Rfam assigns this 492-nucleotide part of an RNA from Pyrenochaeta sp. MPI-SDFR-AT-0127 to the family "Eukaryotic large subunit ribosomal RNA". Taxonomically the source falls in Pyrenochaeta (Eukaryota, Dothideomycetes, Pleosporomycetidae, Pleosporineae). A search with the family's covariance model found it, with a score of 1978 bits.
RNA sequence: CCUACUAAAGUUUCCUUUAGGAUAGUAGUAAUAUAUUUAGUUUUAUAAGGUAAAGCGAAUAAUUAGAGGCCUAGAGAUUAAAAUAACCUUUACCUAUUCCUAAACUUUAAAUAUAUAAGAAGUCCUUAUUACUUAAUUAAAUAUAGACACUUAAAUAUACUAUUACUAGUAGGCUAUUUUUAGUAAGUAGAACUAGUAAUAUAGGAUAAACUAAACGUAGGGUUAAGGUACUAGAAUAUAUACUUAUUAGAUACUAUAAAAGGUAUUAGUUUAUCUAGAUAGUAAGAUAGUAGCUAUAGAAGUUAGAAUCUACUAAGAAGUAUAUAAUAACUUACCUACUAAAUAAACUAGCCCUAAAAAUAGAUAGUGCUUAAGCGUAUUACCUAUACCCUACUACUAGGGUAAGAUUUAAGCCCUAAUAAGUAGGUAGGCGUAGAGGCUUAUAAUAAAGCCUUAGGGGUAACCCUAAGUAGAAUAGCCUCUAGUAUAGAU
Numbered sequence: 001c002c003u004a005c006u007a008a009a010g011u012u013u014c015c016u017u018u019a020g021g022a023u024a025g026u027a028g029u030a031a032u033a034u035a036u037u038u039a040g041u042u043u044u045a046u047a048a049g050g051u052a053a054a055g056c057g058a059a060u061a062a063u064u065a066g067a068g069g070c071c072u073a074g075a076g077a078u079u080a081a082a083a084u085a086a087c088c089u090u091u092a093c094c095u096a097u098u099c100c101u102a103a104a105c106u107u108u109a110a111a112u113a114u115a116u117a118a119g120a121a122g123u124c125c126u127u128a129u130u131a132c133u134u135a136a137u138u139a140a141a142u143a144u145a146g147a148c149a150c151u152u153a154a155a156u157a158u159a160c161u162a163u164u165a166c167u168a169g170u171a172g173g174c175u176a177u178u179u180u181u182a183g184u185a186a187g188u189a190g191a192a193c194u195a196g197u198a199a200u201a202u203a204g205g206a207u208a209a210a211c212u213a214a215a216c217g218u219a220g221g222g223u224u225a226a227g228g229u230a231c232u233a234g235a236a237u238a239u240a241u242a243c244u245u246a247u248u249a250g251a252u253a254c255u256a257u258a259a260a261a262g263g264u265a266u267u268a269g270u271u272u273a274u275c276u277a278g279a280u281a282g283u284a285a286g287a288u289a290g291u292a293g294c295u296a297u298a299g300a301a302g303u304u305a306g307a308a309u310c311u312a313c314u315a316a317g318a319a320g321u322a323u324a325u326a327a328u329a330a331c332u333u334a335c336c337u338a339c340u341a342a343a344u345a346a347a348c349u350a351g352c353c354c355u356a357a358a359a360a361u362a363g364a365u366a367g368u369g370c371u372u373a374a375g376c377g378u379a380u381u382a383c384c385u386a387u388a389c390c391c392u393a394c395u396a397c398u399a400g401g402g403u404a405a406g407a408u409u410u411a412a413g414c415c416c417u418a419a420u421a422a423g424u425a426g427g428u429a430g431g432c433g434u435a436g437a438g439g440c441u442u443a444u445a446a447u448a449a450a451g452c453c454u455u456a457g458g459g460g461u462a463a464c465c466c467u468a469a470g471u472a473g474a475a476u477a478g479c480c481u482c483u484a485g486u487a488u489a490g491a492u
Stems, first nucleotide, its partner, number of pairs: 001431006011024001013022003027167007041120007053108001054106002060102002065097001067095003072092005079085001122148003127143004173197004178192005202213003217394005223388001227384003236381001238380001241377001243375001261355003266351009282339003286335001288312003294306002313317001318333001323330001395421002398418006434484008443476002451471002457466003